A member of the RNA family "Histone 3' UTR stem-loop" from Magallana gigas, 47 nucleotides long. The family's consensus secondary structure is taken from published work. A search with the family's covariance model found it, with a score of 37 bits. The source organism's lineage runs through Eukaryota, Metazoa, Spiralia, Bivalvia and Magallana. On this family, see Williams and Marzluff, Nucleic Acids Res 1995: "The sequence of the stem and flanking sequences at the 3' end of histone mRNA are critical determinants for the binding of the stem-loop binding protein".
RNA sequence: UCAACGGCCGUUUUAACGGCCACCAAAUUUUUCGAAAAGAUGUCUCU
Numbered sequence: 001u002c003a004a005c006g007g008c009c010g011u012u013u014u015a016a017c018g019g020c021c022a023c024c025a026a027a028u029u030u031u032u033c034g035a036a037a038a039g040a041u042g043u044c045u046c047u
Base pairs, nucleotide, nucleotide: 006021007020008019009018010017011016